Notes
Shown here is a 139-nucleotide sequence from Photorhabdus laumondii, a member of the family "CpoB/ybgF ICR thermometer". Rfam classes the family as an RNA thermoregulator. Rfam links the family to the GO terms response to temperature stimulus and regulation of translation. A reference for the family is Righetti et al. (2016), "Temperature-responsive in vitro RNA structurome of Yersinia pseudotuberculosis", Proc Natl Acad Sci U S A. Imprinting control region from upstream of cpoB/ybgF (tol/pal system protein).
RNA sequence: GCAAAUCUCUAUCGUCUCUUACGGUAAAGAGAAACCCGCUGUACUGGGUCACGACGAAGCCGCCUAUGCUAAAAACCGUCGCGCAGUACUGGCAUACUAAGAGUAGUUCAUGAACAGUAACUUCAGACAUCAUUUUUUG
Numbered sequence: 001g002c003a004a005a006u007c008u009c010u011a012u013c014g015u016c017u018c019u020u021a022c023g024g025u026a027a028a029g030a031g032a033a034a035c036c037c038g039c040u041g042u043a044c045u046g047g048g049u050c051a052c053g054a055c056g057a058a059g060c061c062g063c064c065u066a067u068g069c070u071a072a073a074a075a076c077c078g079u080c081g082c083g084c085a086g087u088a089c090u091g092g093c094a095u096a097c098u099a100a101g102a103g104u105a106g107u108u109c110a111u112g113a114a115c116a117g118u119a120a121c122u123u124c125a126g127a128c129a130u131c132a133u134u135u136u137u138u139g
Base pairs, nucleotide, nucleotide: 002046003045007041014035015034017032018031019030020029054138057135058134059133062130065127067125068124075118076117078115079113080112081111083109087105088104089103090102